Shown here is a 94-nucleotide RNA, a member of the family "skipping-rope RNA". The family's RNA type in Rfam is small RNA.

RNA sequence: CGGUUUAGAGGUUGAAAAGUAUCCGGCUCCAACGCGCCACCGGUAUUGGUGGGUCGAGAAAUGUGGGCGACAUCCGCCGGUCCCACCUAAACUG
Numbered sequence: 001c002g003g004u005u006u007a008g009a010g011g012u013u014g015a016a017a018a019g020u021a022u023c024c025g026g027c028u029c030c031a032a033c034g035c036g037c038c039a040c041c042g043g044u045a046u047u048g049g050u051g052g053g054u055c056g057a058g059a060a061a062u063g064u065g066g067g068c069g070a071c072a073u074c075c076g077c078c079g080g081u082c083c084c085a086c087c088u089a090a091a092c093u094g
Stems, first nucleotide, its partner, number of pairs: 001094008011033004023080005035058001037052006063086005